[Rfam]
RNA sequence: GGACGGUUUAGAUUUAUAUUUGGUCUCGUUCGUCGUAACUAGCAUUUGUUUGCCUUGCCGACUACCCAAAUUCUGAGUCC
Numbered sequence: 001g002g003a004c005g006g007u008u009u010a011g012a013u014u015u016a017u018a019u020u021u022g023g024u025c026u027c028g029u030u031c032g033u034c035g036u037a038a039c040u041a042g043c044a045u046u047u048g049u050u051u052g053c054c055u056u057g058c059c060g061a062c063u064a065c066c067c068a069a070a071u072u073c074u075g076a077g078u079c080c
Stems, first nucleotide, its partner, number of pairs: 001080004044056001